[Rfam]
RNA: UnaL2 LINE 3' element
Organism: Coregonus sp. 'balchen'
RNA sequence: UGUACGUAUGACUGUGCGUCGCUUUGGAUAAAAGCGUCUGCUAAAUGGCAUAUG
Numbered sequence: 001u002g003u004a005c006g007u008a009u010g011a012c013u014g015u016g017c018g019u020c021g022c023u024u025u026g027g028a029u030a031a032a033a034g035c036g037u038c039u040g041c042u043a044a045a046u047g048g049c050a051u052a053u054g
Base pairs, nucleotide, nucleotide: 013043014041015040016039020036021035022034023033024032025031